RNA sequence: AUGAAGUGAUGUGAAAUUUCAUGGUCUGUCAAUCCACUGAUUUUUCAUGAUGUUUCUCAUGAUAUCCCGACAGGUUCUGAUCAU
Dot-bracket structure: ((((............................................................................))))
RNA: Small nucleolar RNA snoR14
Organism: Zingiber officinale